This 131-nucleotide RNA from Bacillus salinus belongs to the Rfam family "c-di-GMP-I riboswitch aptamer". The source organism's lineage runs through Bacteria, Bacillati, Bacillota, Bacilli and Bacillus.
[Rfam]
RNA sequence: GUACGAGAAGGGCAAAGCCGUUGAAAAGCGGUGACGCAAAGCUAAAGGGGCUACUGGAGAAAGGUGCCUGGCACUCGAGGGGUGCCUGGUCCAUGGAACGAUGAGAUCUCCUAUGCUAGCCAGCUACCGAA
Numbered sequence: 001g002u003a004c005g006a007g008a009a010g011g012g013c014a015a016a017g018c019c020g021u022u023g024a025a026a027a028g029c030g031g032u033g034a035c036g037c038a039a040a041g042c043u044a045a046a047g048g049g050g051c052u053a054c055u056g057g058a059g060a061a062a063g064g065u066g067c068c069u070g071g072c073a074c075u076c077g078a079g080g081g082g083u084g085c086c087u088g089g090u091c092c093a094u095g096g097a098a099c100g101a102u103g104a105g106a107u108c109u110c111c112u113a114u115g116c117u118a119g120c121c122a123g124c125u126a127c128c129g130a131a
Stems, first nucleotide, its partner, number of pairs: 012037002017032006040125004047121002049117003056111004
It scores 69 bits against the family's covariance model.